The record is a 117-nucleotide RNA from Jannaschia seosinensis, which matches "ALIL pseudoknot" in Rfam. Lineage of the source: Bacteria > Pseudomonadati > Rhodobacterales > Roseobacteraceae > Jannaschia. Pairs were carried over by alignment from the consensus structure, which is taken from published work. Rfam links the family to the GO term positive regulation of translational frameshifting.

RNA sequence: AGCUUGUUUUGCGAUGGCGGAGAUCGACCGCCGGUCGAAGUGAUGGUGUCGUUCAUCGGCAAUCCUCGUGGGAAGCAUGGGGUCGAGCCGAUCUGCAACGUCCUGCCGAUCGCCCCU
Numbered sequence: 001a002g003c004u005u006g007u008u009u010u011g012c013g014a015u016g017g018c019g020g021a022g023a024u025c026g027a028c029c030g031c032c033g034g035u036c037g038a039a040g041u042g043a044u045g046g047u048g049u050c051g052u053u054c055a056u057c058g059g060c061a062a063u064c065c066u067c068g069u070g071g072g073a074a075g076c077a078u079g080g081g082g083u084c085g086a087g088c089c090g091a092u093c094u095g096c097a098a099c100g101u102c103c104u105g106c107c108g109a110u111c112g113c114c115c116c117u
Stems, first nucleotide, its partner, number of pairs: 016032005079116004089112002092109002095106003